The family of this 98-nucleotide RNA from Pseudohongiella spirulinae is "Aggregatibacter sRNA 22". The family's RNA type in Rfam is small RNA. Pairs were carried over by alignment from the consensus structure, which was predicted with RNAfold. The match comes from Rfam's covariance-model search (47 bits).
RNA sequence: UCAUGUUCGACAAAACGCAUCGCGUUUUGGACGCCCGCCAGGGCGCUCCGAAGGGGUGAGUAAUCCGCCAAUGCGGAUUGCGAAUCAAUCAUGCCGGG
Numbered sequence: 001u002c003a004u005g006u007u008c009g010a011c012a013a014a015a016c017g018c019a020u021c022g023c024g025u026u027u028u029g030g031a032c033g034c035c036c037g038c039c040a041g042g043g044c045g046c047u048c049c050g051a052a053g054g055g056g057u058g059a060g061u062a063a064u065c066c067g068c069c070a071a072u073g074c075g076g077a078u079u080g081c082g083a084a085u086c087a088a089u090c091a092u093g094c095c096g097g098g
Stems, first nucleotide, its partner, number of pairs: 011029008032045005046056004060081009086093002
Dot-bracket structure: ..........((((((((...))))))))..(((((....)))))((((...))))...(((((((((....)))))))))....((....)).....